[Rfam]
RNA: Small nucleolar RNA SNORA55
RNA sequence: GCACCAAAUCUUUCCCAUUCCUUACUGUGCAGUGUGGGCCUGGGGACACAUGGUGCUGACAGCAACGCAGAGCAAAUCCAGACAGGUGACUCCUGAUGAGAACCUGUCUCUACACCUCUGCAACAAGU
Numbered sequence: 001g002c003a004c005c006a007a008a009u010c011u012u013u014c015c016c017a018u019u020c021c022u023u024a025c026u027g028u029g030c031a032g033u034g035u036g037g038g039c040c041u042g043g044g045g046a047c048a049c050a051u052g053g054u055g056c057u058g059a060c061a062g063c064a065a066c067g068c069a070g071a072g073c074a075a076a077u078c079c080a081g082a083c084a085g086g087u088g089a090c091u092c093c094u095g096a097u098g099a100g101a102a103c104c105u106g107u108c109u110c111u112a113c114a115c116c117u118c119u120g121c122a123a124c125a126a127g128u
Stems, first nucleotide, its partner, number of pairs: 001056005012046006020038002067121006080109008093100001